The family of this 83-nucleotide RNA from Ophiophagus hannah is "mir-181 microRNA precursor family". It is one of the family's seed sequences. The base pairs follow the family's consensus structure, which was predicted with PFOLD. On this family, see Lagos-Quintana et al., RNA 2003: "New microRNAs from mouse and human".
[Rfam]
RNA sequence: UAGCUUCAGCGAACAUUCAACGCUGUCGGUGAGUUUGGUCCCUCAAGAGAAACCACCGAUCGUUGACUGUACCUUGAGGUUUA
Dot-bracket structure: ((((((((.....((.((((((..(((((((.((((.............))))))))))))))))).)).....))))).)))